Rfam assigns this 592-nucleotide sequence from Micromonospora inyonensis to the family "Saccharopolyspora sRNA 389". On this family, see Liu et al., PLoS One 2013: "Prediction and characterization of small non-coding RNAs related to secondary metabolites in Saccharopolyspora erythraea". The organism belongs to Micromonospora, within Bacteria.

[Rfam]
RNA sequence: ACCAGGGCCGUGCUGGUCUGGUGGAGGAAGUCCCGGCGGGCGUCGCGCACCCGCGAAUGCGCCCGCGCCACUUUCCGCUUCGCUGUGGCCCGAUUCGCGGAGCCUUUCUGUCGGCGGGCCAUCAUCCGCUGGUAGCGCUUCAGGCGGCGCUCCCGCCGCUCCAUGUGUUUCGGGUGGGGGAUGCGUUCGCCGGUGGACAGCACCGCGAAGUCGGUCAGGCCGAGGUCCACGCCGACCACCUGCCCGGUGGGCUCGGGCAGAGCAGGGGUGUCGAUGUCGACGGCGAGGGUCACGUACCAGCGGCCGUCCGGGUCACGGGACACCGUCACCAUGGUCGGAUUCAGCUCGGCCGGGUCGAUGUCGGGCCGCGACCACACGAACGCCAGCGUUCCUGGUGUCUUCCCGAGGGACAGCCUGCCGUCGCGCAGGCGGAAUGCCGACCGAGUGUAGGAGGCGGACUGCCGGCCAUGGCGGGACUUGUAGCGCGGAUACCGGGCCCGCUUGGCGAAGAACGCGGUCAUCGCCGCGUGUUGGUGCCGCAGGGUCUGCUGCAACGGCACCGAACUGACCUCGCCCAGGAACGCCAGGUCGG
Numbered sequence: 001a002c003c004a005g006g007g008c009c010g011u012g013c014u015g016g017u018c019u020g021g022u023g024g025a026g027g028a029a030g031u032c033c034c035g036g037c038g039g040g041c042g043u044c045g046c047g048c049a050c051c052c053g054c055g056a057a058u059g060c061g062c063c064c065g066c067g068c069c070a071c072u073u074u075c076c077g078c079u080u081c082g083c084u085g086u087g088g089c090c091c092g093a094u095u096c097g098c099g100g101a102g103c104c105u106u107u108c109u110g111u112c113g114g115c116g117g118g119c120c121a122u123c124a125u126c127c128g129c130u131g132g133u134a135g136c137g138c139u140u141c142a143g144g145c146g147g148c149g150c151u152c153c154c155g156c157c158g159c160u161c162c163a164u165g166u167g168u169u170u171c172g173g174g175u176g177g178g179g180g181a182u183g184c185g186u187u188c189g190c191c192g193g194u195g196g197a198c199a200g201c202a203c204c205g206c207g208a209a210g211u212c213g214g215u216c217a218g219g220c221c222g223a224g225g226u227c228c229a230c231g232c233c234g235a236c237c238a239c240c241u242g243c244c245c246g247g248u249g250g251g252c253u254c255g256g257g258c259a260g261a262g263c264a265g266g267g268g269u270g271u272c273g274a275u276g277u278c279g280a281c282g283g284c285g286a287g288g289g290u291c292a293c294g295u296a297c298c299a300g301c302g303g304c305c306g307u308c309c310g311g312g313u314c315a316c317g318g319g320a321c322a323c324c325g326u327c328a329c330c331a332u333g334g335u336c337g338g339a340u341u342c343a344g345c346u347c348g349g350c351c352g353g354g355u356c357g358a359u360g361u362c363g364g365g366c367c368g369c370g371a372c373c374a375c376a377c378g379a380a381c382g383c384c385a386g387c388g389u390u391c392c393u394g395g396u397g398u399c400u401u402c403c404c405g406a407g408g409g410a411c412a413g414c415c416u417g418c419c420g421u422c423g424c425g426c427a428g429g430c431g432g433a434a435u436g437c438c439g440a441c442c443g444a445g446u447g448u449a450g451g452a453g454g455c456g457g458a459c460u461g462c463c464g465g466c467c468a469u470g471g472c473g474g475g476a477c478u479u480g481u482a483g484c485g486c487g488g489a490u491a492c493c494g495g496g497c498c499c500g501c502u503u504g505g506c507g508a509a510g511a512a513c514g515c516g517g518u519c520a521u522c523g524c525c526g527c528g529u530g531u532u533g534g535u536g537c538c539g540c541a542g543g544g545u546c547u548g549c550u551g552c553a554a555c556g557g558c559a560c561c562g563a564a565c566u567g568a569c570c571u572c573g574c575c576c577a578g579g580a581a582c583g584c585c586a587g588g589u590c591g592g
Stems, first nucleotide, its partner, number of pairs: 002016004017580003021576001023033003040068002043065001045062005050055001069146001071144003077138002082133003085129004092123001094121001096118001098116002100112002103110001148213002151210001154207003158203001160202001162200001166197001168195001170193004178188001180186001221573001223571005230270004237262001239260001242258004271563003275559004281551005287545001290542001295536008303527002306524002311351004318342003323337001325335002361471003365467001366465002368462002372456001373454001377450001380446002383443001386442001388441003393436002396433001398431001399429003402425001404423002407419001409418001472517001474515001478512002486504003490500001584592002